[Rfam]
The record is a 90-nucleotide RNA from Corymbia citriodora, which matches "mir-156 microRNA precursor family" in Rfam. A search with the family's covariance model found it, with a score of 80 bits. This family represents the plant microRNA (miRNA) precursor mir-156. The family's consensus secondary structure was predicted with PFOLD. The literature on the family includes a 2001 paper in Cell by Ambros, "microRNAs: tiny regulators with great potential". The source organism's lineage runs through Eukaryota, Tracheophyta, Spermatophyta, Myrtales and Corymbia citriodora.
RNA sequence: GUGACAGAAGAGAGUGAGCACACAUAGUACUCUUUCUUGCAUGUCCCGAUCCAUGCUCGAAGCUCUGUGUGCUCACCCUCUUUCUGUCAC
Numbered sequence: 001g002u003g004a005c006a007g008a009a010g011a012g013a014g015u016g017a018g019c020a021c022a023c024a025u026a027g028u029a030c031u032c033u034u035u036c037u038u039g040c041a042u043g044u045c046c047c048g049a050u051c052c053a054u055g056c057u058c059g060a061a062g063c064u065c066u067g068u069g070u071g072c073u074c075a076c077c078c079u080c081u082u083u084c085u086g087u088c089a090c
Stems, first nucleotide, its partner, number of pairs: 001090009010080003014076008023067002